[Rfam]
RNA sequence: GAUUUUGAAAGAGGACGCAAAAACCAAGAGUAGGGAACGAAAGGGGUUUUUGCCGAAGUAUCAUUAGGAUACUGGGGUACGUUCGAACAGGACGUACACUGUCUAAUAAACAAGCCCAUUGUUUAUUAAGGAGUACUUUCAUUAUU
Numbered sequence: 001g002a003u004u005u006u007g008a009a010a011g012a013g014g015a016c017g018c019a020a021a022a023a024c025c026a027a028g029a030g031u032a033g034g035g036a037a038c039g040a041a042a043g044g045g046g047u048u049u050u051u052g053c054c055g056a057a058g059u060a061u062c063a064u065u066a067g068g069a070u071a072c073u074g075g076g077g078u079a080c081g082u083u084c085g086a087a088c089a090g091g092a093c094g095u096a097c098a099c100u101g102u103c104u105a106a107u108a109a110a111c112a113a114g115c116c117c118a119u120u121g122u123u124u125a126u127u128a129a130g131g132a133g134u135a136c137u138u139u140c141a142u143u144a145u146u
Stems, first nucleotide, its partner, number of pairs: 006141006017053009033038001057073006074100002077097008102131002104128008
The family of this 146-nucleotide sequence from Jeotgalibaca porci is "Lysine riboswitch aptamer". The organism belongs to Jeotgalibaca, within Bacteria.